RNA sequence: CAAGAACCUUUUGAAUCAAGUAGUAUAAUGAUUCAAAAGGUUCUC
Numbered sequence: 001c002a003a004g005a006a007c008c009u010u011u012u013g014a015a016u017c018a019a020g021u022a023g024u025a026u027a028a029u030g031a032u033u034c035a036a037a038a039g040g041u042u043c044u045c
Base pairs, nucleotide, nucleotide: 003044004043005042006041007040008039009038010037011036012035013034014033015032016031017030018029
The record is a 45-nucleotide RNA sequence from Draba oreades, which matches "Plastid-ccsA-ndhD-2 3UTR RNA" in Rfam. The literature on the family includes a 2023 paper in Plant Commun by Richter et al., "Retrograde signaling in plants: A critical review focusing on the GUN pathway and beyond". Rfam describes the family as follows. Plastid ccsA-ndhD-2 is a non-coding RNA (ncRNA) recognised in plastids. Rfam 15.1 lists 875 matches to the family in 517 species. By type it is a cis-regulatory element.